[Rfam]
RNA sequence: ACAAAAGAACAGGGGAGCUUGUAAACAGGCUGAGAGGAAAUUAUGAAUUUCGACCCUUUACCUGAUGCGGAUAAUGCCGCCGUAGGAAGUCAUAAUGAUUUUUUU
Numbered sequence: 001a002c003a004a005a006a007g008a009a010c011a012g013g014g015g016a017g018c019u020u021g022u023a024a025a026c027a028g029g030c031u032g033a034g035a036g037g038a039a040a041u042u043a044u045g046a047a048u049u050u051c052g053a054c055c056c057u058u059u060a061c062c063u064g065a066u067g068c069g070g071a072u073a074a075u076g077c078c079g080c081c082g083u084a085g086g087a088a089g090u091c092a093u094a095a096u097g098a099u100u101u102u103u104u105u
Base pairs, nucleotide, nucleotide: 006093009090010089011057012056013055014054017030018029019028020027021026037051038050039049040048041047061086062085063084064083067080068079069078070077
Dot-bracket structure: .....(..((((((..(((((....)))))......(((((.....)))))..))))...((((..((((......))))..))))..))..)............

The family of this 105-nucleotide RNA sequence from Ruminococcus sp. AF31-8BH is "TPP riboswitch aptamer (THI element)". Pairs were carried over by alignment from the consensus structure, which is taken from published work. The organism belongs to Ruminococcus, within Bacteria. It scores 70 bits against the family's covariance model.